[Rfam]
RNA sequence: GAGUUACAUUUGUUGGCAAGGUUAAGGACUAAAGGUCUGGAGCCGAAGGGAAACCAAGUCUUAAUAGGGCGUUGAGUCAGCAGGUGUAGACCCGAAACCGGGUGACCUACCCAUGUCCAGGUUGAAGUUACCGUAAAAGGUAAUGGAGGACCGAACUCACAUGUGUUGAAAAACGUGGAGAUGAGGUGUGGGUAGCGGAGAAAUUCCAAUCGAACCCGGAGAUAGCUGGUU
Numbered sequence: 001g002a003g004u005u006a007c008a009u010u011u012g013u014u015g016g017c018a019a020g021g022u023u024a025a026g027g028a029c030u031a032a033a034g035g036u037c038u039g040g041a042g043c044c045g046a047a048g049g050g051a052a053a054c055c056a057a058g059u060c061u062u063a064a065u066a067g068g069g070c071g072u073u074g075a076g077u078c079a080g081c082a083g084g085u086g087u088a089g090a091c092c093c094g095a096a097a098c099c100g101g102g103u104g105a106c107c108u109a110c111c112c113a114u115g116u117c118c119a120g121g122u123u124g125a126a127g128u129u130a131c132c133g134u135a136a137a138a139g140g141u142a143a144u145g146g147a148g149g150a151c152c153g154a155a156c157u158c159a160c161a162u163g164u165g166u167u168g169a170a171a172a173a174c175g176u177g178g179a180g181a182u183g184a185g186g187u188g189u190g191g192g193u194a195g196c197g198g199a200g201a202a203a204u205u206c207c208a209a210u211c212g213a214a215c216c217c218g219g220a221g222a223u224a225g226c227u228g229g230u231u
Stems, first nucleotide, its partner, number of pairs: 005088013020044004026038003048055002058070004091229002094226001098219006107195011118183001120152004127144006156180003160177005197207003
Bacterial large subunit ribosomal RNA: a 231-nucleotide part of an RNA from Natranaerovirga pectinivora. The match comes from Rfam's covariance-model search (2901 bits). Rfam links the family to the GO terms structural constituent of ribosome and ribosome.